[Rfam]
RNA: TPP riboswitch aptamer (THI element)
RNA sequence: GGCCACAUGCAGGGGUGCUGGAGGAAUCCGGCUGUGAUUGAUCGUAGUCCCGAUCAGAUCCCUUAGAACCUGAUCUGGGUAAUGCCAGCGUAGGAAGCAGUUGCGAAACUUCG
Number, nucleotide and partner (000 for none) at each position: 001g000002g000003c000004c000005a000006c000007a000008u099009g098010c097011a063012g062013g061014g060015g000016u057017g032018c031019u030020g029021g028022a000023g000024g000025a000026a000027u000028c021029c020030g019031g018032c017033u000034g000035u000036g000037a000038u000039u056040g055041a054042u053043c052044g000045u000046a000047g000048u000049c000050c000051c000052g043053a042054u041055c040056a039057g016058a000059u000060c014061c013062c012063u011064u000065a000066g000067a000068a000069c094070c093071u092072g091073a000074u000075c088076u087077g086078g085079g000080u000081a000082a000083u000084g000085c078086c077087a076088g075089c000090g000091u072092a071093g070094g069095a000096a000097g010098c009099a008100g000101u000102u000103g000104c000105g000106a000107a000108a000109c000110u000111u000112c000113g000